[Rfam]
RNA sequence: UAGUUGUAUAAUUAAUGAUAGAUUAAGACAACUAGGGUUUUUAGUUUUAGCUUGUGGUUUGGUAUUUUGAUAGAAGAAAGAUGCCUCUUCUUUCAGCAGCAAGAUCCAUUCUUGGUAGCUUUGUUCUGGAGGCACAUAU
Number, nucleotide and partner (000 for none) at each position: 001u000002a000003g000004u000005u000006g000007u000008a055009u054010a053011a052012u000013u000014a046015a045016u044017g000018a042019u000020a000021g039022a038023u037024u000025a000026a000027g000028a000029c000030a000031a000032c000033u000034a000035g000036g000037g023038u022039u021040u000041u000042u018043a000044g016045u015046u014047u000048u000049a000050g000051c000052u011053u010054g009055u008056g000057g000058u000059u000060u000061g000062g000063u000064a000065u000066u000067u000068u000069g000070a000071u000072a000073g000074a000075a000076g000077a000078a000079a000080g000081a000082u134083g133084c132085c131086u130087c129088u128089u000090c000091u000092u000093u000094c000095a120096g119097c118098a116099g000100c114101a113102a112103g111104a110105u000106c000107c000108a000109u000110u104111c103112u102113u101114g100115g000116u098117a000118g097119c096120u095121u000122u000123g000124u000125u000126c000127u000128g088129g087130a086131g085132g084133c083134a082135c000136a000137u000138a000139u000

This 139-nucleotide sequence from Arabis alpina belongs to the Rfam family "Brassica rapa small nucleolar RNA 775". Name based on close proximity to miR775. Precursors of both are encoded by a single gene sno-miR775. The base pairs follow the family's consensus structure. The family's RNA type in Rfam is H/ACA-box small nucleolar RNA. A search with the family's covariance model found it, with a score of 83 bits. Rfam links the family to the GO terms nucleolus and RNA processing.